[Rfam]
RNA sequence: GGUUCGGGAGCCCGCCUUUGGCACGGCGGGCAUGAAUGGAACCAGUCUUAGCUUUGCAAGCAUGCUGCCCGUGGCCCGACGGUUGGCAA
Numbered sequence: 001g002g003u004u005c006g007g008g009a010g011c012c013c014g015c016c017u018u019u020g021g022c023a024c025g026g027c028g029g030g031c032a033u034g035a036a037u038g039g040a041a042c043c044a045g046u047c048u049u050a051g052c053u054u055u056g057c058a059a060g061c062a063u064g065c066u067g068c069c070c071g072u073g074g075c076c077c078g079a080c081g082g083u084u085g086g087c088a089a
Base pairs, nucleotide, nucleotide: 001043002042003041004040005039010031011030012029013028014027015026016025063088064087065086067084069082070081071080